[Rfam]
RNA sequence: CCACUCGAUGACGAGGAGUUGAUGUCCUACAUCCUUGCCGGUCUCGACAACGAUUGGGAACCGGUUGUCUCCUCUCUUAUUGGGAGACCGGAUGUCGUCUCCUUCCACGAGCUUUACUCUCAACUCCUCAGCUUCGAGU
Numbered sequence: 001c002c003a004c005u006c007g008a009u010g011a012c013g014a015g016g017a018g019u020u021g022a023u024g025u026c027c028u029a030c031a032u033c034c035u036u037g038c039c040g041g042u043c044u045c046g047a048c049a050a051c052g053a054u055u056g057g058g059a060a061c062c063g064g065u066u067g068u069c070u071c072c073u074c075u076c077u078u079a080u081u082g083g084g085a086g087a088c089c090g091g092a093u094g095u096c097g098u099c100u101c102c103u104u105c106c107a108c109g110a111g112c113u114u115u116a117c118u119c120u121c122a123a124c125u126c127c128u129c130a131g132c133u134u135c136g137a138g139u
Stems, first nucleotide, its partner, number of pairs: 004138005090106003
RNA: Small nucleolar RNA Z247
Organism: Oryza sativa